[Rfam]
RNA: Alphaproteobacterial ar14
RNA sequence: GUGUUACGGGCCAGUUCACUCCUCCUCCCAGAACGGCCCGUUGGAAUGACAGCACUCCUCCUCCCAGCUGUCAUUCGGUUCUUUUCGGAAAACCUGCCGCACCUCCUCCCGCGGCAGGUUUUUCGU
Numbered sequence: 001g002u003g004u005u006a007c008g009g010g011c012c013a014g015u016u017c018a019c020u021c022c023u024c025c026u027c028c029c030a031g032a033a034c035g036g037c038c039c040g041u042u043g044g045a046a047u048g049a050c051a052g053c054a055c056u057c058c059u060c061c062u063c064c065c066a067g068c069u070g071u072c073a074u075u076c077g078g079u080u081c082u083u084u085u086c087g088g089a090a091a092a093c094c095u096g097c098c099g100c101a102c103c104u105c106c107u108c109c110c111g112c113g114g115c116a117g118g119u120u121u122u123u124c125g126u
Stems, first nucleotide, its partner, number of pairs: 007040003011036002014034004044076010090121011